[Rfam]
RNA sequence: GGUUUGUAGGCAGUGUUGUUAGCUGAUUGUUUUAUUUAAACUACAAUCACUAACCAUACUGCCAACACAAU
Number, nucleotide and partner (000 for none) at each position: 001g000002g000003u069004u000005u067006g066007u000008a000009g063010g062011c000012a060013g059014u058015g057016u056017u000018g054019u053020u052021a051022g050023c000024u049025g048026a047027u046028u045029g044030u043031u000032u000033u000034a000035u000036u000037u000038a000039a000040a000041c000042u000043a030044c029045a028046a027047u026048c025049a024050c022051u021052a020053a019054c018055c000056a016057u015058a014059c013060u012061g000062c010063c009064a000065a000066c006067a005068c000069a003070a000071u000

The family of this 71-nucleotide sequence from Sinocyclocheilus grahami is "mir-34 microRNA precursor family". A search with the family's covariance model found it, with a score of 68 bits. The family has 113 seed sequences and 2,256 matches in Rfam 15.1. Clan: mir-34 clan. For this family Rfam cites "Embryonic stem cell-specific MicroRNAs" (Houbaviy et al., Dev Cell, 2003). Lineage of the source: Eukaryota > Gnathostomata > Euteleostomi > Cyprinidae > Sinocyclocheilus. Rfam links the family to the GO terms RISC complex and miRNA-mediated post-transcriptional gene silencing.